[Rfam]
RNA sequence: AUCACUUGGGCAUCUUGUUAAAAGGCAGGCUCUGAUUAAGCAGGUCUGGAACAAGACCUAAGAUUCUGCAUUUCUAAUAAGCUCCCAGGUGAUGGCCG
Numbered sequence: 001a002u003c004a005c006u007u008g009g010g011c012a013u014c015u016u017g018u019u020a021a022a023a024g025g026c027a028g029g030c031u032c033u034g035a036u037u038a039a040g041c042a043g044g045u046c047u048g049g050a051a052c053a054a055g056a057c058c059u060a061a062g063a064u065u066c067u068g069c070a071u072u073u074c075u076a077a078u079a080a081g082c083u084c085c086c087a088g089g090u091g092a093u094g095g096c097c098g
Base pairs, nucleotide, nucleotide: 003091004090005089009085010084014081015080016079017078018077019076020075021073022072023071025069026068027067028066029065031063032062033061

Description
The family of this 98-nucleotide RNA sequence from Rhinolophus ferrumequinum is "mir-544 microRNA precursor family". Rfam 15.1 lists 10,750 matches to the family in 132 species. The base pairs follow the family's consensus structure, which was predicted with RNAalifold. Lineage of the source: Eukaryota > Bilateria > Craniata > Rhinolophidae > Rhinolophus.